[Rfam]
RNA: Fluoride riboswitch aptamer (crcB RNA motif)
RNA sequence: UUAACCUUAGGCGAUGGAGUUCGCCUUAACCGCCUCUUUCACAGGGGGCUGAUGACUCCUACUUUUCC
Numbered sequence: 001u002u003a004a005c006c007u008u009a010g011g012c013g014a015u016g017g018a019g020u021u022c023g024c025c026u027u028a029a030c031c032g033c034c035u036c037u038u039u040c041a042c043a044g045g046g047g048g049c050u051g052a053u054g055a056c057u058c059c060u061a062c063u064u065u066u067c068c
Stems, first nucleotide, its partner, number of pairs: 010025004016059006032049007